[Rfam]
RNA sequence: GUCUAUCUUCGGGGCGGGGUGCAAUUCCCCACCGGCGGUGAUAAAGGUAAGCCUUUUAAGCCCGCGAGCCUUUAAGGGCAGGAUUUGGUGAGAUUCCAAAGCCGACAGUAUAGUCUGGAUGGGAGAAGAUGGAG
Numbered sequence: 001g002u003c004u005a006u007c008u009u010c011g012g013g014g015c016g017g018g019g020u021g022c023a024a025u026u027c028c029c030c031a032c033c034g035g036c037g038g039u040g041a042u043a044a045a046g047g048u049a050a051g052c053c054u055u056u057u058a059a060g061c062c063c064g065c066g067a068g069c070c071u072u073u074a075a076g077g078g079c080a081g082g083a084u085u086u087g088g089u090g091a092g093a094u095u096c097c098a099a100a101g102c103c104g105a106c107a108g109u110a111u112a113g114u115c116u117g118g119a120u121g122g123g124a125g126a127a128g129a130u131g132g133a134g
Stems, first nucleotide, its partner, number of pairs: 003132008017029003031114002033104002035065004060102002070078001084100005106117003

FMN riboswitch aptamer (RFN element): a 134-nucleotide RNA sequence from Peribacillus saganii. Rfam 15.1 lists 6,230 matches to the family in 5,120 species. NCBI's taxonomy places the organism under Bacteria, Bacillati, Bacillota, Bacillaceae, Peribacillus. It scores 122 bits against the family's covariance model. The base pairs follow the family's consensus structure, which is taken from published work.